[Rfam]
RNA: L31-Firmicutes ribosomal protein leader
RNA sequence: CUCUGGGUUGAAAUAACAUUCAGGGCGGAAGGAG
Numbered sequence: 001c002u003c004u005g006g007g008u009u010g011a012a013a014u015a016a017c018a019u020u021c022a023g024g025g026c027g028g029a030a031g032g033a034g
Stems, first nucleotide, its partner, number of pairs: 001025008